This 335-nucleotide RNA sequence from Anaerospora hongkongensis belongs to the Rfam family "Bacterial RNase P class B". From the family's description: Ribonuclease P (RNase P) is a ubiquitous endoribonuclease, found in archaea, bacteria and eukarya as well as chloroplasts and mitochondria. By type it is a ribozyme.

RNA sequence: GUGUUCGAGGCAACGCGGCGAUUCUUUGAAAUCGUUGAGGAAAGUCCGGGCAGGCACAGGCUGAAAUGCUUGUAGUGAUUGUGUGUGAGCUAAUAACUCACAGGGGAGUACAGCAGUACUUUCACGGCGGUGAAAUUGGCUCUCGUAGUCGAGAAUAACCCGAAGGUGCCACAGAAACGAUAUGGUCCGGCGACGGGCCAGUGCAAACGGUAAACCCCACAAGCCUGAAACCCAAAUUAUGGUAGGGGAACUCUUUCGAAGGAACUGAACUUAGAAAGAGCAGUAUUCCAAUACUGAGACAGAUGUUGCUUUAGAAACAGAACCCGGCUUAUGAG
Numbered sequence: 001g002u003g004u005u006c007g008a009g010g011c012a013a014c015g016c017g018g019c020g021a022u023u024c025u026u027u028g029a030a031a032u033c034g035u036u037g038a039g040g041a042a043a044g045u046c047c048g049g050g051c052a053g054g055c056a057c058a059g060g061c062u063g064a065a066a067u068g069c070u071u072g073u074a075g076u077g078a079u080u081g082u083g084u085g086u087g088a089g090c091u092a093a094u095a096a097c098u099c100a101c102a103g104g105g106g107a108g109u110a111c112a113g114c115a116g117u118a119c120u121u122u123c124a125c126g127g128c129g130g131u132g133a134a135a136u137u138g139g140c141u142c143u144c145g146u147a148g149u150c151g152a153g154a155a156u157a158a159c160c161c162g163a164a165g166g167u168g169c170c171a172c173a174g175a176a177a178c179g180a181u182a183u184g185g186u187c188c189g190g191c192g193a194c195g196g197g198c199c200a201g202u203g204c205a206a207a208c209g210g211u212a213a214a215c216c217c218c219a220c221a222a223g224c225c226u227g228a229a230a231c232c233c234a235a236a237u238u239a240u241g242g243u244a245g246g247g248g249a250a251c252u253c254u255u256u257c258g259a260a261g262g263a264a265c266u267g268a269a270c271u272u273a274g275a276a277a278g279a280g281c282a283g284u285a286u287u288c289c290a291a292u293a294c295u296g297a298g299a300c301a302g303a304u305g306u307u308g309c310u311u312u313a314g315a316a317a318c319a320g321a322a323c324c325c326g327g328c329u330u331a332u333g334a335g
Stems, first nucleotide, its partner, number of pairs: 004335004008311007016037006042330003046327005051227005056073006079222005084102006103125001104123008126217002129160003137151004166215002168211003183200007231247003251280007281296006